[Rfam]
RNA sequence: ACCUUGGCUCUAGACUGCUUACUGCUUAUGGAGUCCGACAGUACAGUAACAGUCUACAGUCAUGGCU
Numbered sequence: 001a002c003c004u005u006g007g008c009u010c011u012a013g014a015c016u017g018c019u020u021a022c023u024g025c026u027u028a029u030g031g032a033g034u035c036c037g038a039c040a041g042u043a044c045a046g047u048a049a050c051a052g053u054c055u056a057c058a059g060u061c062a063u064g065g066c067u
Base pairs, nucleotide, nucleotide: 002065003064005062006061007060008059013054014053015052016051017050019049020048021047022046023045

Description: Shown here is a 67-nucleotide RNA from Ictalurus punctatus, a member of the family "mir-132 microRNA precursor family". Rfam's curators put it in the seed alignment. NCBI's taxonomy places the organism under Eukaryota, Osteoglossocephalai, Otophysi, Siluriformes, Ictalurus. Gene Ontology terms of the family: RISC complex and miRNA-mediated post-transcriptional gene silencing. Rfam 15.1 lists 1,023 matches to the family in 386 species.